RNA sequence: UAAGCGGAAGUCGAAAAGCUUGAAAAGAGUAGACA
Numbered sequence: 001u002a003a004g005c006g007g008a009a010g011u012c013g014a015a016a017a018g019c020u021u022g023a024a025a026a027g028a029g030u031a032g033a034c035a
Stems, first nucleotide, its partner, number of pairs: 002021004010034003